Overview:
The family of this 116-nucleotide RNA from Falsihalocynthiibacter arcticus is "ALIL pseudoknot". The base pairs follow the family's consensus structure, which is taken from published work. Lineage of the source: Bacteria > Pseudomonadati > Alphaproteobacteria > Roseobacteraceae > Falsihalocynthiibacter. The family has 26 seed sequences and 2,146 matches in Rfam 15.1. Rfam classes the family as a cis-regulatory element.

RNA sequence: AGCAUAUUUUGCGCAGGCGGAGCUCGCCCGCCCGUUCAAGCGAUGAUUGCCUUCAUUGAAGAGCACCGCAAUGACCUGGGAGUCGAGCCGAUUUGCAAGGUUUUGCCAAUAGCCCA
Numbered sequence: 001a002g003c004a005u006a007u008u009u010u011g012c013g014c015a016g017g018c019g020g021a022g023c024u025c026g027c028c029c030g031c032c033c034g035u036u037c038a039a040g041c042g043a044u045g046a047u048u049g050c051c052u053u054c055a056u057u058g059a060a061g062a063g064c065a066c067c068g069c070a071a072u073g074a075c076c077u078g079g080g081a082g083u084c085g086a087g088c089c090g091a092u093u094u095g096c097a098a099g100g101u102u103u104u105g106c107c108a109a110u111a112g113c114c115c116a
Base pairs, nucleotide, nucleotide: 016032017031018030019029020028079115080114082113089112092109093108095106096105097104098103